[Rfam]
RNA sequence: CCCCAGCUAGGCUGGGGGUUCAGUAAAGCUUUCAGCUUUGGGUCAGUUAUAAAAACCCCUUUUGAUUUGUUAAAACAGUUUGCGGUCUGGCAACUGCAAAUGUUCAACAAGAAAUCAAAAG
Numbered sequence: 001c002c003c004c005a006g007c008u009a010g011g012c013u014g015g016g017g018g019u020u021c022a023g024u025a026a027a028g029c030u031u032u033c034a035g036c037u038u039u040g041g042g043u044c045a046g047u048u049a050u051a052a053a054a055a056c057c058c059c060u061u062u063u064g065a066u067u068u069g070u071u072a073a074a075a076c077a078g079u080u081u082g083c084g085g086u087c088u089g090g091c092a093a094c095u096g097c098a099a100a101u102g103u104u105c106a107a108c109a110a111g112a113a114a115u116c117a118a119a120a121g
Base pairs, nucleotide, nucleotide: 001017002016003015004014005013006012007011025039026038027037028036029035030034059121060120061119062118063117064116065115066114067113068109069108070107071106074104075103076102078101079100080099081098082097083096084095085094086093
Dot-bracket structure: (((((((...))))))).......((((((...))))))...................(((((((((((((..(((.(((((((((......)))))))))))).))))...)))))))))
Shown here is a 121-nucleotide RNA from Yersinia pestis, a member of the family "STnc490 Hfq binding RNA". Pairs were carried over by alignment from the consensus structure, which was predicted with WAR. It is annotated as a small RNA. The sequence is in the family's curated seed alignment.